Small nucleolar RNA snoR145: a 148-nucleotide RNA from Prunus persica. For this family Rfam cites "Mining small RNA sequencing data: a new approach to identify small nucleolar RNAs in Arabidopsis" (Chen and Wu, Nucleic Acids Res, 2009). Lineage of the source: Eukaryota > Viridiplantae > Magnoliopsida > Amygdaloideae > Prunus. Rfam 15.1 lists 286 matches to the family in 194 species. By type it is an H/ACA-box small nucleolar RNA. Its family is annotated with nucleolus and RNA processing in the Gene Ontology. It is one of the family's seed sequences. Pairs were carried over by alignment from the consensus structure, which was predicted with mfold.
[Rfam]
RNA sequence: AUGCGAAGGUCCCAGCGGAGGGGCAAGCUACUCAGAAAUGAGGCCUCUCUAACAUUAUCAAUUAAACCUUCGCAAACUCACGCCAAAUCGUACGACGCCCAGAUUUCUCUUUCACUUCUGUGCGUCUUGAACCCUUGGCUACAUUUCU
Numbered sequence: 001a002u003g004c005g006a007a008g009g010u011c012c013c014a015g016c017g018g019a020g021g022g023g024c025a026a027g028c029u030a031c032u033c034a035g036a037a038a039u040g041a042g043g044c045c046u047c048u049c050u051a052a053c054a055u056u057a058u059c060a061a062u063u064a065a066a067c068c069u070u071c072g073c074a075a076a077c078u079c080a081c082g083c084c085a086a087a088u089c090g091u092a093c094g095a096c097g098c099c100c101a102g103a104u105u106u107c108u109c110u111u112u113c114a115c116u117u118c119u120g121u122g123c124g125u126c127u128u129g130a131a132c133c134c135u136u137g138g139c140u141a142c143a144u145u146u147c148u
Stems, first nucleotide, its partner, number of pairs: 003073007011020001013018001026048002031042004082139005094126002097123002100120004